TPP riboswitch aptamer (THI element): a 143-nucleotide RNA from Pandoraea pnomenusa. A search with the family's covariance model found it, with a score of 61 bits. Lineage of the source: Bacteria > Betaproteobacteria > Burkholderiales > Burkholderiaceae > Pandoraea.

RNA sequence: CGGGCGAAACAGGGGUGCUCCGUGUCGGACGCGGGGGUUAACUGACAAGGUUAACCAUGCGUCACAAAGGAACGCGGGGCUGAGAGAGACCCUUUGCACCCGACCCGGGUAAUACCGGCGUGGGAAGUUUCCGACUCCUCCAG
Numbered sequence: 001c002g003g004g005c006g007a008a009a010c011a012g013g014g015g016u017g018c019u020c021c022g023u024g025u026c027g028g029a030c031g032c033g034g035g036g037g038u039u040a041a042c043u044g045a046c047a048a049g050g051u052u053a054a055c056c057a058u059g060c061g062u063c064a065c066a067a068a069g070g071a072a073c074g075c076g077g078g079g080c081u082g083a084g085a086g087a088g089a090c091c092c093u094u095u096g097c098a099c100c101c102g103a104c105c106c107g108g109g110u111a112a113u114a115c116c117g118g119c120g121u122g123g124g125a126a127g128u129u130u131c132c133g134a135c136u137c138c139u140c141c142a143g
Base pairs, nucleotide, nucleotide: 006131007130008129009128010127011093012092013091014090016087017080018079019078020077021076022075023074024073025072099124100123101122102121105118106117107116108115